[Rfam]
RNA: TPP riboswitch aptamer (THI element)
RNA sequence: AGAUCCUGCUGGGGGUGCCCGUCGCACGGGCUGAGACAGUCCCUUGGAACCUGAUCCGGAUGAUACCGGCGGAGGGAAGCAUGGACGGGGCAAA
Numbered sequence: 001a002g003a004u005c006c007u008g009c010u011g012g013g014g015g016u017g018c019c020c021g022u023c024g025c026a027c028g029g030g031c032u033g034a035g036a037c038a039g040u041c042c043c044u045u046g047g048a049a050c051c052u053g054a055u056c057c058g059g060a061u062g063a064u065a066c067c068g069g070c071g072g073a074g075g076g077a078a079g080c081a082u083g084g085a086c087g088g089g090g091c092a093a094a
Stems, first nucleotide, its partner, number of pairs: 007081004011044004016038001017031005050075003056069004